[Rfam]
RNA: Archaeal RNase P
RNA sequence: GUGGGCCGCCGGGCGGGCGCCGGCCAGCAUCGGCGACGUGCUGGCUGUGGAACCCCCUCCCCUCCGCGGCGCGCGGCUGCGCAAGCAGCUCGGCGAAGAGCCGAGGGAGGGCGAGGCCUCCCAGCGCGAAUGGAGAUGACCCCCGAGUCACGGGGAGAUGACGCUCUGGGUUUGCGUGGAAUGUCCUCCCCGCGGGGUUAGGGUCAAACAGGCCCUGUGAGGGGCCGCGGUGAGGGCCGGGUGGACCCUUAGACGGAUCCCGCCUAAACAGAAGAGGGGGUACGAGCGGUCCAC
Numbered sequence: 001g002u003g004g005g006c007c008g009c010c011g012g013g014c015g016g017g018c019g020c021c022g023g024c025c026a027g028c029a030u031c032g033g034c035g036a037c038g039u040g041c042u043g044g045c046u047g048u049g050g051a052a053c054c055c056c057c058u059c060c061c062c063u064c065c066g067c068g069g070c071g072c073g074c075g076g077c078u079g080c081g082c083a084a085g086c087a088g089c090u091c092g093g094c095g096a097a098g099a100g101c102c103g104a105g106g107g108a109g110g111g112c113g114a115g116g117c118c119u120c121c122c123a124g125c126g127c128g129a130a131u132g133g134a135g136a137u138g139a140c141c142c143c144c145g146a147g148u149c150a151c152g153g154g155g156a157g158a159u160g161a162c163g164c165u166c167u168g169g170g171u172u173u174g175c176g177u178g179g180a181a182u183g184u185c186c187u188c189c190c191c192g193c194g195g196g197g198u199u200a201g202g203g204u205c206a207a208a209c210a211g212g213c214c215c216u217g218u219g220a221g222g223g224g225c226c227g228c229g230g231u232g233a234g235g236g237c238c239g240g241g242u243g244g245a246c247c248c249u250u251a252g253a254c255g256g257a258u259c260c261c262g263c264c265u266a267a268a269c270a271g272a273a274g275a276g277g278g279g280g281u282a283c284g285a286g287c288g289g290u291c292c293a294c
Base pairs, nucleotide, nucleotide: 001294002293003292005290006289007288008287009286010284011283012264013263014262015261016260017259021047022046023045024044025043026042027041028040029039030038052281053280054279056278057277058276060197061196062195064230065229066228067227068226069225075190076089077088078087079086080085090104091103092102093101094100105189106188108187109186110185111184118174120170121169122168123167124166126164127163141155142154202247203246204245205244211238212237213236214235215234